[Rfam]
RNA sequence: GAGAACUAAUACUCUGAGCAAUUAAAUGAUAAGGUAACGCUUUGAAGAAUUGCCAUUAAAAUUACGAUAUGCAAUGGAUUAAGUUAUUAUGAAGUUGUGUAAAGCUCGUUGAAGUCGGCAGAAAAAUUACCCUAACGAGUUAAGUCGAGGAAAGGUUUAAUUAGCUGUAAUUGAUAUGUCGGAUGUCUAUGAA
Numbered sequence: 001g002a003g004a005a006c007u008a009a010u011a012c013u014c015u016g017a018g019c020a021a022u023u024a025a026a027u028g029a030u031a032a033g034g035u036a037a038c039g040c041u042u043u044g045a046a047g048a049a050u051u052g053c054c055a056u057u058a059a060a061a062u063u064a065c066g067a068u069a070u071g072c073a074a075u076g077g078a079u080u081a082a083g084u085u086a087u088u089a090u091g092a093a094g095u096u097g098u099g100u101a102a103a104g105c106u107c108g109u110u111g112a113a114g115u116c117g118g119c120a121g122a123a124a125a126a127u128u129a130c131c132c133u134a135a136c137g138a139g140u141u142a143a144g145u146c147g148a149g150g151a152a153a154g155g156u157u158u159a160a161u162u163a164g165c166u167g168u169a170a171u172u173g174a175u176a177u178g179u180c181g182g183a184u185g186u187c188u189a190u191g192a193a
Stems, first nucleotide, its partner, number of pairs: 018053006031043004054185004064109004068101008079093002116181005125172006131150003137146002154166004
Group II catalytic intron D1-D4-5: a 193-nucleotide RNA sequence from Clostridioides difficile. It is one of the family's seed sequences. From the family's description: Group II introns are found in rRNA, tRNA and mRNA of organelles in fungi, plants and protists, and also in mRNA in bacteria. The literature on the family includes a 2001 paper in Trends Genet by Bonen and Vogel, "The ins and outs of group II introns". The base pairs follow the family's consensus structure.